[Rfam]
RNA sequence: GGCCAGAAGACUGUGAUGUGGCAUUUUCCAAGCACAUAUCUGACUGGUCUGUGUGGAUAUCAACUAUUACUGAGUUUUCUGGAC
Dot-bracket structure: (.((((.((((..............................................................)))).)))).)

Shown here is an 84-nucleotide RNA from Chrysemys picta, a member of the family "Small nucleolar RNA SNORD121A". By type it is a C/D-box small nucleolar RNA.